Annotation: A member of the RNA family "mir-9/mir-79 microRNA precursor family" from Panagrolaimus sp. PS1159, 79 nucleotides long. A reference for the family is Lagos-Quintana et al. (2001), "Identification of novel genes coding for small expressed RNAs", Science.
[Rfam]
RNA sequence: AUUUGCUUGUCUUUGGUGAUUUGGCUGUAUGAGUUACAUUUAAGGCAUCAUAAAGCUAGGUUACCAGAGCUAAGCGAAU
Numbered sequence: 001a002u003u004u005g006c007u008u009g010u011c012u013u014u015g016g017u018g019a020u021u022u023g024g025c026u027g028u029a030u031g032a033g034u035u036a037c038a039u040u041u042a043a044g045g046c047a048u049c050a051u052a053a054a055g056c057u058a059g060g061u062u063a064c065c066a067g068a069g070c071u072a073a074g075c076g077a078a079u
Stems, first nucleotide, its partner, number of pairs: 001079005007073003011069016028052005